[Rfam]
RNA: Lysine riboswitch aptamer
RNA sequence: AACAAGAUAAGAGGUCGCAAAAACCAUCAGUCGUUAUUCUGAACUGACUAAGCAGUGAUGAGGAAUAAUUAAAGGGGAAUUUGCCGAAAUGUCAAUUUGCUUAUUCAAAUUGAUGUUGGGACUUGAUUGAAUAAAUCAAGGACUGUCGUAACGAAACGUUACGGGGCGCUAUCAACGG
Numbered sequence: 001a002a003c004a005a006g007a008u009a010a011g012a013g014g015u016c017g018c019a020a021a022a023a024c025c026a027u028c029a030g031u032c033g034u035u036a037u038u039c040u041g042a043a044c045u046g047a048c049u050a051a052g053c054a055g056u057g058a059u060g061a062g063g064a065a066u067a068a069u070u071a072a073a074g075g076g077g078a079a080u081u082u083g084c085c086g087a088a089a090u091g092u093c094a095a096u097u098u099g100c101u102u103a104u105u106c107a108a109a110u111u112g113a114u115g116u117u118g119g120g121a122c123u124u125g126a127u128u129g130a131a132u133a134a135a136u137c138a139a140g141g142a143c144u145g146u147c148g149u150a151a152c153g154a155a156a157c158g159u160u161a162c163g164g165g166g167c168g169c170u171a172u173c174a175a176c177g178g
Base pairs, nucleotide, nucleotide: 006173007172008171010170011169017084018083019082020081021080024077025076033069034068035067036066037065038064039063040062088117089116090115091114092113093112094111095110096109097108098107099106118144119143122140123139124138125137126136127135128134146164147163148162149161150160151159152158